[Rfam]
RNA sequence: AUCAUUAAGGUGGGUGGAAUAGUGUAACAAUAUUCUAUAUGUUGUUAUAGUAUUCCACCCACCCUGAUGUU
Numbered sequence: 001a002u003c004a005u006u007a008a009g010g011u012g013g014g015u016g017g018a019a020u021a022g023u024g025u026a027a028c029a030a031u032a033u034u035c036u037a038u039a040u041g042u043u044g045u046u047a048u049a050g051u052a053u054u055c056c057a058c059c060c061a062c063c064c065u066g067a068u069g070u071u
Stems, first nucleotide, its partner, number of pairs: 003069005009063009019053003023049011
Record summary: A member of the RNA family "mir-2985 microRNA precursor family" from Chiloscyllium punctatum, 71 nucleotides long. Taxonomically the source falls in Chiloscyllium (Eukaryota, Metazoa, Bilateria, Vertebrata). Gene Ontology terms of the family: miRNA-mediated post-transcriptional gene silencing and RISC complex. It scores 93 bits against the family's covariance model.